[Rfam]
RNA: mir-205 microRNA precursor family
RNA sequence: UUCUGAUGACCUUCAUUCCACCAGAAUCUGUAGUGAAUACAUCCGGAUUUGAGUGAAAUGGAGAACAUUAAGACA
Dot-bracket structure: ..........((((((..(((..(((.(((.............))).)))..)))..))))))............
Numbered sequence: 001u002u003c004u005g006a007u008g009a010c011c012u013u014c015a016u017u018c019c020a021c022c023a024g025a026a027u028c029u030g031u032a033g034u035g036a037a038u039a040c041a042u043c044c045g046g047a048u049u050u051g052a053g054u055g056a057a058a059u060g061g062a063g064a065a066c067a068u069u070a071a072g073a074c075a
Stems, first nucleotide, its partner, number of pairs: 011063006019055003024050003028046003